[Rfam]
Nucleotides: 123
Stems, first nucleotide, its partner, number of pairs: 001040005010035002014030002041048002057071001059069002088116011
Number, partner (000 for none) and nucleotide at each position: 001040g002039u003038c004037a005036u006000a007000c008000u009000a010035c011034g012000g013000c014030g015029c016000a017000u018000u019000c020000a021000g022000g023000g024000a025000a026000a027000a028000a029015g030014u031000a032000a033000a034011c035010g036005a037004u038003g039002a040001c041048c042047c043000u044000u045000a046000a047042g048041g049000a050000a051000c052000u053000c054000u055000a056000c057071g058000c059069u060068a061000a062000a063000a064000u065000g066000c067000g068060u069059a070000u071057c072000a073000a074000a075000a076000u077000g078000c079000a080000a081000a082000a083000u084000c085000g086000a087000u088116c089115c090114u091113g092112a093111c094110u095109u096108g097107g098106a099000a100000g101000a102000a103000u104000u105000u106098u107097c108096c109095g110094g111093g112092u113091u114090a115089g116088g117000g118000u119000u120000c121000u122000u123000u
Overview:
Shown here is a 123-nucleotide RNA sequence from Serratia rubidaea, a member of the family "Enterobacteria greA leader". A reference for the family is Naville and Gautheret (2010), "Premature terminator analysis sheds light on a hidden world of bacterial transcriptional attenuation", Genome Biol. Rfam links the family to the GO term regulation of gene expression. It scores 122 bits against the family's covariance model. The family's consensus secondary structure is taken from published work.